[Rfam]
RNA sequence: UACACAUGCUAGGGGUGCUUGGUAAACCAAGCUGAGAUCACACCCUUAACACCUGAGACUGGGUAAUACCAGCGGAGGGAAGCUGAUUAUAUUGAGG
Dot-bracket structure: .......(((((((.((((((......))))).......)..)))).....(((....((((......))))...)))..)))..............
RNA: TPP riboswitch aptamer (THI element)